The record is a 65-nucleotide RNA sequence from Yersinia pestis, which matches "DnaX ribosomal frameshifting element" in Rfam. This family represents a ribosomal frameshifting element found in the mRNA of the dnaX gene in E. coli. For this family Rfam cites "Structural probing and mutagenic analysis of the stem-loop required for Escherichia coli dnaX ribosomal frameshifting: programmed efficiency of 50%" (Larsen et al., J Mol Biol, 1997). Rfam classes the family as a frameshift element. The source organism's lineage runs through Bacteria, Pseudomonadati, Enterobacterales, Yersinia and Yersinia pestis.
[Rfam]
RNA sequence: AGUCGGGGACGACCACAACAAAAAAGAAUGAGCCGGCGGCGCCAGGAAAAGCGCGGCCGGCAAAC
Numbered sequence: 001a002g003u004c005g006g007g008g009a010c011g012a013c014c015a016c017a018a019c020a021a022a023a024a025a026g027a028a029u030g031a032g033c034c035g036g037c038g039g040c041g042c043c044a045g046g047a048a049a050a051g052c053g054c055g056g057c058c059g060g061c062a063a064a065c
Base pairs, nucleotide, nucleotide: 032061033060034059035058036057037056039054040053